[Rfam]
This 262-nucleotide sequence from Clostridium sartagoforme belongs to the Rfam family "Bacterial large signal recognition particle RNA".

RNA sequence: CUGUGCUAGAUGGGGAGUUAGCGGUGCCCUAUAACCUGCAAUCCGCUAUAGCAGGAUUGAAUUCCCAGUCUAGGCUUUAAUCUGUAGAGCCUGCCUAUGCAAGUGGUGUUGAUGGCAAGGUCCCAUACGACGUAAGUGCAUGAACCUCGUCAGGUCCGGAAGGAAGCAGCGAUAAGUGAUUACUGCGUGUGAUAUGGAUAAAUCUUGUCAGAGCUAACUACAUAGUAACGUCUAUAGAUUACUGUCGAAGCUGGGUGCACGG
Numbered sequence: 001c002u003g004u005g006c007u008a009g010a011u012g013g014g015g016a017g018u019u020a021g022c023g024g025u026g027c028c029c030u031a032u033a034a035c036c037u038g039c040a041a042u043c044c045g046c047u048a049u050a051g052c053a054g055g056a057u058u059g060a061a062u063u064c065c066c067a068g069u070c071u072a073g074g075c076u077u078u079a080a081u082c083u084g085u086a087g088a089g090c091c092u093g094c095c096u097a098u099g100c101a102a103g104u105g106g107u108g109u110u111g112a113u114g115g116c117a118a119g120g121u122c123c124c125a126u127a128c129g130a131c132g133u134a135a136g137u138g139c140a141u142g143a144a145c146c147u148c149g150u151c152a153g154g155u156c157c158g159g160a161a162g163g164a165a166g167c168a169g170c171g172a173u174a175a176g177u178g179a180u181u182a183c184u185g186c187g188u189g190u191g192a193u194a195u196g197g198a199u200a201a202a203u204c205u206u207g208u209c210a211g212a213g214c215u216a217a218c219u220a221c222a223u224a225g226u227a228a229c230g231u232c233u234a235u236a237g238a239u240u241a242c243u244g245u246c247g248a249a250g251c252u253g254g255g256u257g258c259a260c261g262g
Stems, first nucleotide, its partner, number of pairs: 001262006009058003012030004017025003035055005064255006073246003079240010092230002095225005103218002105215003113210009123197005128189002131187004139178003147172004155164003
Rfam classes the family as a non-coding RNA gene. Rfam links the family to the GO terms SRP-dependent cotranslational protein targeting to membrane, signal sequence recognition and signal recognition particle, plasma membrane targeting. The signal recognition particle (SRP) is a universally conserved ribonucleoprotein involved in the co-translational targeting of proteins to membranes.